Record summary
Archaeal large subunit ribosomal RNA: a 259-nucleotide part of an RNA from Thermoplasmatales archaeon I-plasma. The sequence is in the family's curated seed alignment. Pairs were carried over by alignment from the consensus structure, which is taken from published work.
RNA sequence: UGAUGCCUGAAGGGAAGGAGCCUUUAGUACGAGAGGAACGGGGCUUCGUGGCCUCUAGUUUACCGGUUGUCUGACAAGGCAUUCGCCGGGCAGCCACGUCAUAUGCGGAUAAGAGCUGAAAGCAUCUAAGUUCGAAACCGUCCCUGAAAAGAGGCAUCGUCAUCAGAUCUCUCCUAAAAGAGGAGUUUGAUAGGAUCGGGAUGUAAGCGUCAAGCCGCAAGGCGAGACGUUGAGUCCGCGAUUACUAACGAUCGAAAAC
Numbered sequence: 001u002g003a004u005g006c007c008u009g010a011a012g013g014g015a016a017g018g019a020g021c022c023u024u025u026a027g028u029a030c031g032a033g034a035g036g037a038a039c040g041g042g043g044c045u046u047c048g049u050g051g052c053c054u055c056u057a058g059u060u061u062a063c064c065g066g067u068u069g070u071c072u073g074a075c076a077a078g079g080c081a082u083u084c085g086c087c088g089g090g091c092a093g094c095c096a097c098g099u100c101a102u103a104u105g106c107g108g109a110u111a112a113g114a115g116c117u118g119a120a121a122g123c124a125u126c127u128a129a130g131u132u133c134g135a136a137a138c139c140g141u142c143c144c145u146g147a148a149a150a151g152a153g154g155c156a157u158c159g160u161c162a163u164c165a166g167a168u169c170u171c172u173c174c175u176a177a178a179a180g181a182g183g184a185g186u187u188u189g190a191u192a193g194g195a196u197c198g199g200g201a202u203g204u205a206a207g208c209g210u211c212a213a214g215c216c217g218c219a220a221g222g223c224g225a226g227a228c229g230u231u232g233a234g235u236c237c238g239c240g241a242u243u244a245c246u247a248a249c250g251a252u253c254g255a256a257a258a259c
Base pairs, nucleotide, nucleotide: 001159002158003157004156005155006154007153008152011145012144013143014142017047018046019045020044021043022042023041024040048102049101050100051099052098056096058094063089064088065087066086067085068081069080070079071078072077106140107139108138113133114132115131116130117129166253167252168251169250171185172184173183174182191247192246193245194243195242196241197240198239199237200236201235207230208229209228210227211226214223